[Rfam]
RNA sequence: GGCGAUAAAUGAUGCCGUGAAAUAGGUACAGCGGACCCGGGGGCGGUACCCGGCGGCUCCACCAAUUCACCGGGCAGGCAUAACCAGCCUGUCCGGACAUGGGGCCGAACUAGGAUCGACGUGUGCUGAAAGACGGUUUUCUUUGCCCGGCCUGAAUGCGCCGCAAAACCGUUCAAAACCUACAAAUGCCAACGAUAACGAGGCAUUCGCGAUCGCUGCGUAA
Number, nucleotide and partner (000 for none) at each position: 001g147002g146003c145004g144005a143006u000007a000008a000009a000010u000011g000012a000013u000014g000015c136016c135017g134018u133019g000020a000021a000022a000023u000024a000025g000026g000027u125028a124029c123030a000031g122032c121033g120034g000035a000036c000037c053038c052039g051040g050041g049042g000043g000044c000045g000046g000047u000048a000049c041050c040051c039052g038053g037054c107055g106056g105057c104058u103059c102060c101061a000062c000063c000064a000065a000066u000067u000068c000069a000070c000071c000072g000073g000074g000075c000076a000077g000078g000079c000080a000081u000082a000083a000084c000085c000086a000087g000088c000089c000090u000091g000092u000093c000094c000095g000096g000097a000098c000099a000100u000101g060102g059103g058104g057105c056106c055107g054108a000109a000110c000111u000112a000113g000114g000115a000116u000117c000118g000119a000120c033121g032122u031123g029124u028125g027126c000127u000128g000129a000130a000131a000132g000133a018134c017135g016136g015137u000138u000139u000140u000141c000142u000143u005144u004145g003146c002147c001148c163149g162150g161151c160152c000153u000154g000155a000156a000157u000158g000159c000160g151161c150162c149163g148164c000165a000166a000167a000168a000169c000170c000171g000172u000173u000174c000175a000176a000177a000178a000179c000180c000181u000182a000183c000184a000185a000186a000187u000188g000189c000190c000191a000192a000193c000194g000195a000196u000197a000198a000199c000200g000201a000202g000203g000204c000205a000206u000207u000208c000209g000210c000211g000212a000213u000214c000215g000216c000217u000218g000219c000220g000221u000222a000223a000
Shown here is a 223-nucleotide RNA sequence from Sphingosinicella soli, a member of the family "permuted transfer-messenger RNA". Rfam classes the family as a non-coding RNA gene.